[Rfam]
RNA sequence: AUUCCAAAUGAAAAGGGAGUAGAACAGAAAUAAUAUUUUCUCAGAAUUUAUUUCGUUGUAUCCCCAGCUUGCUUAGCCUGUAGAAUUUCUUUAGGAAAUUCUCUUUGCUGGGGCCCCGAACCCCAACUUGCUUAUCUUGUAGUAUUUCUUUAGGAAAUUCUCUUUGUUAGCGCCCCGCCUACCAGGCAAGGAUGACUAGGUUUGAAAAAACGCUUGACUCAAGCGCAUUUUCAAACCAGUCAGCUACUGACAACAUGAUAAAGUAGGCUGAGACAUUUUAUUUU
Numbered sequence: 001a002u003u004c005c006a007a008a009u010g011a012a013a014a015g016g017g018a019g020u021a022g023a024a025c026a027g028a029a030a031u032a033a034u035a036u037u038u039u040c041u042c043a044g045a046a047u048u049u050a051u052u053u054c055g056u057u058g059u060a061u062c063c064c065c066a067g068c069u070u071g072c073u074u075a076g077c078c079u080g081u082a083g084a085a086u087u088u089c090u091u092u093a094g095g096a097a098a099u100u101c102u103c104u105u106u107g108c109u110g111g112g113g114c115c116c117c118g119a120a121c122c123c124c125a126a127c128u129u130g131c132u133u134a135u136c137u138u139g140u141a142g143u144a145u146u147u148c149u150u151u152a153g154g155a156a157a158u159u160c161u162c163u164u165u166g167u168u169a170g171c172g173c174c175c176c177g178c179c180u181a182c183c184a185g186g187c188a189a190g191g192a193u194g195a196c197u198a199g200g201u202u203u204g205a206a207a208a209a210a211c212g213c214u215u216g217a218c219u220c221a222a223g224c225g226c227a228u229u230u231u232c233a234a235a236c237c238a239g240u241c242a243g244c245u246a247c248u249g250a251c252a253a254c255a256u257g258a259u260a261a262a263g264u265a266g267g268c269u270g271a272g273a274c275a276u277u278u279u280a281u282u283u284u
Stems, first nucleotide, its partner, number of pairs: 002013002005010001015065003019062001022061001024059002027054007035047005067140002071136001073134001075132003082102009107127001109125005114118001141161002144158005164253007172245001193242005199237004204232005212224004260284008
Notes
Staphylococcus sRNA 35 (srn_0335): a 284-nucleotide RNA sequence from Staphylococcus haemolyticus. The base pairs follow the family's consensus structure, which was predicted with RNAfold. A search with the family's covariance model found it, with a score of 205 bits. By type it is a small RNA. The literature on the family includes a 2016 paper in PLoS Genet by Mader et al., "Staphylococcus aureus Transcriptome Architecture: From Laboratory to Infection-Mimicking Conditions". The organism belongs to Staphylococcus haemolyticus, within Bacteria.